[Rfam]
This 79-nucleotide RNA from Alligator sinensis belongs to the Rfam family "Mammalian CPEB3 ribozyme". Rfam describes the family as follows. The mammalian CPEB3 ribozyme is a self cleaving RNA located in the second intron of the CPEB3 gene which belongs to a family of genes regulating messenger RNA polyadenylation. Rfam links the family to the GO term RNA nuclease activity.

RNA sequence: AGAGGUUACAUGUUUGAGGCCAUAGGAGAAGCACUCAUGUCGUGGCCUGUCAGAUUCCAAUAAAUCUGCAAAUUCUGGU
Number, nucleotide and partner (000 for none) at each position: 001a000002g000003a000004g000005g000006u000007u000008a000009c000010a000011u000012g000013u000014u000015u000016g000017a000018g047019g046020c045021c044022a000023u000024a079025g000026g000027a076028g075029a074030a073031g043032c042033a000034c000035u000036c000037a000038u000039g000040u000041c000042g032043u031044g021045g020046c019047c018048u000049g000050u000051c068052a067053g066054a065055u064056u063057c000058c000059a000060a000061u000062a000063a056064a055065u054066c053067u052068g051069c000070a000071a000072a000073u030074u029075c028076u027077g000078g000079u024